A member of the RNA family "Small nucleolar RNA SNORA74" from Peromyscus maniculatus, 193 nucleotides long. Lineage of the source: Eukaryota > Bilateria > Teleostomi > Eutheria > Peromyscus maniculatus. On this family, see Ganot et al., Genes Dev 1997: "The family of box ACA small nucleolar RNAs is defined by an evolutionarily conserved secondary structure and ubiquitous sequence elements essential for RNA accumulation". From the family's description: U19 belongs to the H/ACA class of snoRNAs. snoRNAs bind a number of proteins (including dyskerin, Gar1p and Nop10p in the case of the H/ACA class) to form snoRNP complexes. This class are thought to guide the sites of modification of uridines to pseudouridines by forming direct base pairing interactions with substrate RNAs. The family's RNA type in Rfam is H/ACA-box small nucleolar RNA. It scores 162 bits against the family's covariance model. Rfam 15.1 lists 1,348 matches to the family in 628 species.
RNA sequence: CCCAACAGUUGUCAGCUAUCCAGGCUGCAUGGUGCCUGUGAUUGUGUUACAGUGUUGGGAGAGUAAAGGCUGUCUUAAGGGUUGGCUCUGAGCACUGUUUUGGUGGUCAUGCUGACUACCUUCAGGCAGUGUUUGCAUCCCUGAGAGUGGAAGAACUCCUUGUGGAGUUGGUCCUGGUCUAGGUGCAAACAGU
Numbered sequence: 001c002c003c004a005a006c007a008g009u010u011g012u013c014a015g016c017u018a019u020c021c022a023g024g025c026u027g028c029a030u031g032g033u034g035c036c037u038g039u040g041a042u043u044g045u046g047u048u049a050c051a052g053u054g055u056u057g058g059g060a061g062a063g064u065a066a067a068g069g070c071u072g073u074c075u076u077a078a079g080g081g082u083u084g085g086c087u088c089u090g091a092g093c094a095c096u097g098u099u100u101u102g103g104u105g106g107u108c109a110u111g112c113u114g115a116c117u118a119c120c121u122u123c124a125g126g127c128a129g130u131g132u133u134u135g136c137a138u139c140c141c142u143g144a145g146a147g148u149g150g151a152a153g154a155a156c157u158c159c160u161u162g163u164g165g166a167g168u169u170g171g172u173c174c175u176g177g178u179c180u181a182g183g184u185g186c187a188a189a190c191a192g193u
Stems, first nucleotide, its partner, number of pairs: 001059007009051001011050002015045002018042003021038005067132001069130007077122004082115005090107001093105004133188007149174003154169006